[Rfam]
RNA sequence: GGGUCGGCAGAACACCCAGGCCUUGCCGUGCGGCAGGAGUCAUUGAUCACUUCCUUCCGCAAGCUAAACCUGCCA
Numbered sequence: 001g002g003g004u005c006g007g008c009a010g011a012a013c014a015c016c017c018a019g020g021c022c023u024u025g026c027c028g029u030g031c032g033g034c035a036g037g038a039g040u041c042a043u044u045g046a047u048c049a050c051u052u053c054c055u056u057c058c059g060c061a062a063g064c065u066a067a068a069c070c071u072g073c074c075a
Stems, first nucleotide, its partner, number of pairs: 001017004029061004
RNA: COG3860 RNA